Shown here is a 71-nucleotide sequence from Porphyromonas asaccharolytica, a member of the family "Bacteroidetes FopS (family of paralogous sRNAs)". The organism belongs to Porphyromonas asaccharolytica, within Bacteria. The literature on the family includes a 2025 paper in Nat Commun by Ruttiger et al., "The global RNA-binding protein RbpB is a regulator of polysaccharide utilization in Bacteroides thetaiotaomicron". Rfam classes the family as a small RNA. About the family: The RNA-binding protein RbpB and BTncRNA_FopS sRNA are involved in the post-transcription regulation of polysaccharide utilisation loci (PUL). FopS sRNAs function as post-transcriptional repressors by binding to the vicinity of the start codon of the first mRNA of target PUL polycistrons, typically corresponding to the cognate SusC homolog, impeding translation of the respective glycan transporter.

[Rfam]
RNA sequence: GUGUUUUUCAUGGUGUUAGAUUUUAAGGUUAAUGAGAAGGGGCUGUCGUACUGACAGCCCCUUUUUUAUGG
Numbered sequence: 001g002u003g004u005u006u007u008u009c010a011u012g013g014u015g016u017u018a019g020a021u022u023u024u025a026a027g028g029u030u031a032a033u034g035a036g037a038a039g040g041g042g043c044u045g046u047c048g049u050a051c052u053g054a055c056a057g058c059c060c061c062u063u064u065u066u067u068a069u070g071g
Stems, first nucleotide, its partner, number of pairs: 039061009